[Rfam]
RNA sequence: GGUAAUAAAUGGACGGUGAAAUAAACCUAUUGGACCCGGGGGCAGUACCCGGCGCCUCCACCACGGGGCAAUCAUGUUAGUUGCUUGCUUUAUGGUGGGGGCGAUAUAGGAUCGACAAAGGUAUAAAGAUCGCUCUUUUGCUCGGCAUUGUACCACCGUUAUCGGACUUUUCAGUAGUUGCAAAUGACAACUAUGCGGAAGCUCGCCUCGCUGCUUGA
Numbered sequence: 001g002g003u004a005a006u007a008a009a010u011g012g013a014c015g016g017u018g019a020a021a022u023a024a025a026c027c028u029a030u031u032g033g034a035c036c037c038g039g040g041g042g043c044a045g046u047a048c049c050c051g052g053c054g055c056c057u058c059c060a061c062c063a064c065g066g067g068g069c070a071a072u073c074a075u076g077u078u079a080g081u082u083g084c085u086u087g088c089u090u091u092a093u094g095g096u097g098g099g100g101g102c103g104a105u106a107u108a109g110g111a112u113c114g115a116c117a118a119a120g121g122u123a124u125a126a127a128g129a130u131c132g133c134u135c136u137u138u139u140g141c142u143c144g145g146c147a148u149u150g151u152a153c154c155a156c157c158g159u160u161a162u163c164g165g166a167c168u169u170u171u172c173a174g175u176a177g178u179u180g181c182a183a184a185u186g187a188c189a190a191c192u193a194u195g196c197g198g199a200a201g202c203u204c205g206c207c208u209c210g211c212u213g214c215u216u217g218a
Stems, first nucleotide, its partner, number of pairs: 001142005014132004026121003030118003036052005053103011143158003
A member of the RNA family "permuted transfer-messenger RNA" from Candidatus Tokpelaia sp. JSC085, 218 nucleotides long. It is annotated as a non-coding RNA gene. Taxonomically the source falls in Candidatus Tokpelaia (Bacteria, Pseudomonadati, Pseudomonadota, Hyphomicrobiales). About the family: Bacterial tmRNA, also known as 10Sa RNA or SsrA, is named for its dual tRNA and mRNA-like properties. Its role is to liberate the mRNA from a stalled ribosome.